[Rfam]
RNA sequence: UGCCUCGUUUUUCAGCAAAUAGACACAACUCACCGUGUGUCGGAAUUGAACAACGUGGCUAGAACAGCAACAGGUUGUGCUUUCCUCACUGUAAAGCCCAUUGCAGUGGUGACAAUGAGGCCUGUAACAGGC
Numbered sequence: 001u002g003c004c005u006c007g008u009u010u011u012u013c014a015g016c017a018a019a020u021a022g023a024c025a026c027a028a029c030u031c032a033c034c035g036u037g038u039g040u041c042g043g044a045a046u047u048g049a050a051c052a053a054c055g056u057g058g059c060u061a062g063a064a065c066a067g068c069a070a071c072a073g074g075u076u077g078u079g080c081u082u083u084c085c086u087c088a089c090u091g092u093a094a095a096g097c098c099c100a101u102u103g104c105a106g107u108g109g110u111g112a113c114a115a116u117g118a119g120g121c122c123u124g125u126a127a128c129a130g131g132c
Base pairs, nucleotide, nucleotide: 002059003058004057006055007054008053022041023040024039025038026037027036070125071124072123073122074121084111086109087108088107089106
The family of this 132-nucleotide RNA from Anser cygnoides is "Small nucleolar RNA SNORA1". The organism belongs to Anser, within Eukaryota.